[Rfam]
Rfam assigns this 138-nucleotide sequence from Malus baccata to the family "MIR396 microRNA precursor family". Rfam links the family to the GO terms miRNA-mediated post-transcriptional gene silencing and RISC complex. A reference for the family is Jones-Rhoades and Bartel (2004), "Computational identification of plant microRNAs and their targets, including a stress-induced miRNA", Mol Cell. Rfam 15.1 lists 744 matches to the family in 207 species.
RNA sequence: CUUUGUAUUCUUCCACAGCUUUCUUGAACUGCAUCCAUCUAUGGCGAGAUCGACCGAUCUUUGAAGUGAGUCGACUCAGUAUCUCUAUUCCCCUUAACUUGGUUUGCGGUUCAAUAAAGCUGUGGGAAGAUACAGAUA
Numbered sequence: 001c002u003u004u005g006u007a008u009u010c011u012u013c014c015a016c017a018g019c020u021u022u023c024u025u026g027a028a029c030u031g032c033a034u035c036c037a038u039c040u041a042u043g044g045c046g047a048g049a050u051c052g053a054c055c056g057a058u059c060u061u062u063g064a065a066g067u068g069a070g071u072c073g074a075c076u077c078a079g080u081a082u083c084u085c086u087a088u089u090c091c092c093c094u095u096a097a098c099u100u101g102g103u104u105u106g107c108g109g110u111u112c113a114a115u116a117a118a119g120c121u122g123u124g125g126g127a128a129g130a131u132a133c134a135g136a137u138a
Stems, first nucleotide, its partner, number of pairs: 003135005013125003017121006024114004029109005